[Rfam]
RNA: MAT2A 3'UTR stem loop D
Nucleotides: 041
Base pairs, nucleotide, nucleotide: 001041002040003039004038006036007035008034009032010031011030012029013028
Number, partner (000 for none) and nucleotide at each position: 001041u002040c003039u004038g005000a006036a007035a008034c009032u010031c011030a012029g013028c014000g015000u016000g017000g018000a019000u020000a021000c022000a023000g024000a025000g026000a027000a028013g029012c030011u031010g032009a033000a034008g035007u036006u037000c038004c039003a040002g041001a